[Rfam]
Nucleotides: 260
Base pairs, nucleotide, nucleotide: 002260003259004258005257006256007255008254009253010252011251014217015216016215017214018213019212022056023055024054025053029049030048031047032046033045034044035043036042037041061246062245063244065243066242067241068240079090080089081088082087091106092105093104094103095102096101108187109186110185114183116181117180124175125174126173127172158168159167160166161165219230220229221228222227
Number, partner (000 for none) and nucleotide at each position: 001000u002260g003259a004258c005257u006256g007255c008254a009253a010252g011251a012000c013000g014217a015216c016215g017214u018213g019212a020000a021000u022056g023055g024054g025053u026000c027000a028000a029049g030048g031047u032046c033045c034044a035043c036042u037041c038000u039000u040000u041037g042036g043035g044034u045033g046032g047031g048030c049029c050000a051000g052000g053025a054024c055023c056022c057000a058000g059000g060000a061246a062245a063244g064000u065243c066242c067241c068240u069000g070000g071000g072000c073000c074000a075000u076000u077000u078000c079090u080089g081088c082087a083000g084000a085000g086000a087082u088081g089080c090079a091106g092105g093104u094103u095102c096101g097000g098000u099000a100000a101096c102095g103094a104093a105092u106091u107000a108187g109186c110185u111000u112000c113000a114183c115000g116181g117180g118000c119000a120000u121000a122000a123000u124175g125174a126173g127172u128000u129000u130000a131000a132000a133000g134000c135000c136000c137000g138000u139000a140000u141000g142000g143000g144000c145000u146000u147000g148000g149000g150000c151000u152000g153000a154000g155000a156000c157000g158168a159167g160166g161165u162000g163000g164000a165161g166160c167159c168158u169000a170000u171000g172127a173126c174125u175124c176000c177000u178000g179000c180117c181116c182000g183114g184000g185110a186109g187108c188000g189000a190000u191000a192000u193000u194000g195000g196000c197000c198000a199000g200000u201000u202000u203000g204000a205000c206000a207000g208000u209000u210000a211000u212019u213018c214017a215016c216015g217014u218000g219230g220229c221228c222227c223000a224000g225000u226000u227222g228221g229220g230219c231000u232000a233000a234000c235000u236000g237000a238000a239000c240068g241067g242066g243065g244063c245062u246061u247000a248000u249000g250000c251011u252010c253009u254008u255007g256006c257005a258004g259003u260002c
Shown here is a 260-nucleotide RNA sequence from Solanum commersonii, a member of the family "RNase MRP".
It scores 94 bits against the family's covariance model.
By type it is a ribozyme.
RNase MRP is an enzymatically active ribonucleoprotein with two distinct roles in eukaryotes. In mitochondria it plays a direct role in the initiation of mitochondrial DNA replication. In the nucleus it is involved in precursor rRNA processing, where it cleaves the internal transcribed spacer 1 between 18S and 5.8S rRNAs. Despite distinct functions, RNase MRP has been shown to be evolutionarily related to RNase P. Like eukaryotic RNase P, RNase MRP is not catalytically active without associated protein subunits.